Notes: Shown here is an 86-nucleotide RNA sequence, a member of the family "Group II catalytic intron D1-D4-1". The literature on the family includes a 2001 paper in Trends Genet by Bonen and Vogel, "The ins and outs of group II introns". The match comes from Rfam's covariance-model search (54 bits).
[Rfam]
RNA sequence: CUACCGAGCGUCGAGAGGCGACGGGACGAGCGUGCAGAAGUCAGCCGAGGCCGUAGUAAGUGGCGGUUAACCGCGCCACCAAGGGC
Numbered sequence: 001c002u003a004c005c006g007a008g009c010g011u012c013g014a015g016a017g018g019c020g021a022c023g024g025g026a027c028g029a030g031c032g033u034g035c036a037g038a039a040g041u042c043a044g045c046c047g048a049g050g051c052c053g054u055a056g057u058a059a060g061u062g063g064c065g066g067u068u069a070a071c072c073g074c075g076c077c078a079c080c081a082a083g084g085g086c
Base pairs, nucleotide, nucleotide: 001028004024005023006022009020010019011018012017041048042047050086051085052084060079061078062077063076064075065074